[Rfam]
RNA sequence: AUGAGGAGAAACCAUGUGACGGAGUCACAAUUAGGAUGGUUUCGACGACCUGCCGCCGAGCAGAGGCGAGGGGGCGAUACCUAUU
Numbered sequence: 001a002u003g004a005g006g007a008g009a010a011a012c013c014a015u016g017u018g019a020c021g022g023a024g025u026c027a028c029a030a031u032u033a034g035g036a037u038g039g040u041u042u043c044g045a046c047g048a049c050c051u052g053c054c055g056c057c058g059a060g061c062a063g064a065g066g067c068g069a070g071g072g073g074g075c076g077a078u079a080c081c082u083a084u085u
Stems, first nucleotide, its partner, number of pairs: 008043006015029005052075003056071002060067002